[Rfam]
RNA sequence: CUUGAUGGACCCCAGCCACAGCGGGUGCUCCGCCGACUUCUCCCGCCCGUAGGUGGCAAGCAGCGCCUGCGCCUC
Numbered sequence: 001c002u003u004g005a006u007g008g009a010c011c012c013c014a015g016c017c018a019c020a021g022c023g024g025g026u027g028c029u030c031c032g033c034c035g036a037c038u039u040c041u042c043c044c045g046c047c048c049g050u051a052g053g054u055g056g057c058a059a060g061c062a063g064c065g066c067c068u069g070c071g072c073c074u075c
Stems, first nucleotide, its partner, number of pairs: 014026001016024002031071003038065001043060001047056003
Record summary
The family of this 75-nucleotide sequence from Streptomyces inusitatus is "ASpks TB sRNA". It is annotated as an antisense RNA. The match comes from Rfam's covariance-model search (71 bits).